Shown here is a 119-nucleotide RNA sequence from Oryza brachyantha, a member of the family "mir-399 microRNA precursor family". It scores 82 bits against the family's covariance model. Taxonomically the source falls in Oryza (Eukaryota, Euphyllophyta, Mesangiospermae, Oryzinae). Rfam 15.1 lists 2,396 matches to the family in 221 species. mir-399 was identified in both Arabidopsis thaliana and Oryza sativa computationally and was later experimentally verified. mir-399 is thought to target mRNAs coding for a phosphatase transporter. The mature sequence is excised from the 3' arm of the hairpin.

[Rfam]
RNA sequence: GUGAGAAUCACAGUGCAGCUCUCCUAUGGCAUGGAUGGCAAGAGGUGGUGAAUAAUUAUUAUUGGAUGAUAAACUGCUAGCCUUUCCCUGCCAAAGGAGAGCUGCCCUGCCAUUCAGUG
Numbered sequence: 001g002u003g004a005g006a007a008u009c010a011c012a013g014u015g016c017a018g019c020u021c022u023c024c025u026a027u028g029g030c031a032u033g034g035a036u037g038g039c040a041a042g043a044g045g046u047g048g049u050g051a052a053u054a055a056u057u058a059u060u061a062u063u064g065g066a067u068g069a070u071a072a073a074c075u076g077c078u079a080g081c082c083u084u085u086c087c088c089u090g091c092c093a094a095a096g097g098a099g100a101g102c103u104g105c106c107c108u109g110c111c112a113u114u115c116a117g118u119g
Base pairs, nucleotide, nucleotide: 005115006114007113008112011109012108013107015105016104017103018102019101021099022098023097024096027093028092029091030090031089033087034086035085